[Rfam]
This 57-nucleotide RNA from Hucho hucho belongs to the Rfam family "U7 small nuclear RNA". The literature on the family includes a 1987 paper in Science by Mowry and Steitz, "Identification of the human U7 snRNP as one of several factors involved in the 3' end maturation of histone premessenger RNA's". It scores 36 bits against the family's covariance model.
RNA sequence: UGGAACAUAUGCUCUUUUAGUAUUUCUCCAGUAGGUUUACUCAUUGAGAAAGUCCCC
Numbered sequence: 001u002g003g004a005a006c007a008u009a010u011g012c013u014c015u016u017u018u019a020g021u022a023u024u025u026c027u028c029c030a031g032u033a034g035g036u037u038u039a040c041u042c043a044u045u046g047a048g049a050a051a052g053u054c055c056c057c
Stems, first nucleotide, its partner, number of pairs: 034054005040048003
Dot-bracket structure: .................................(((((.(((...))).)))))...